[Rfam]
RNA: Plastid-psbN 5UTR RNA
RNA sequence: UGCAACACCCAUCAAGGGAGUAGUACCCCAUCUAGCUAGGAGCUAUUUACCAUAUUCCGAAUUC
Numbered sequence: 001u002g003c004a005a006c007a008c009c010c011a012u013c014a015a016g017g018g019a020g021u022a023g024u025a026c027c028c029c030a031u032c033u034a035g036c037u038a039g040g041a042g043c044u045a046u047u048u049a050c051c052a053u054a055u056u057c058c059g060a061a062u063u064c
Stems, first nucleotide, its partner, number of pairs: 017048003021045004026040002